RNA sequence: CCAUGGAGGGGGCUGGGAUCAGACCCAUGGAGGGGGCUGG
Number, nucleotide and partner (000 for none) at each position: 001c030002c029003a028004u027005g026006g025007a000008g000009g000010g000011g000012g000013c000014u000015g000016g000017g000018a000019u000020c000021a000022g000023a000024c000025c006026c005027a004028u003029g002030g001031a000032g000033g000034g000035g000036g000037c000038u000039g000040g000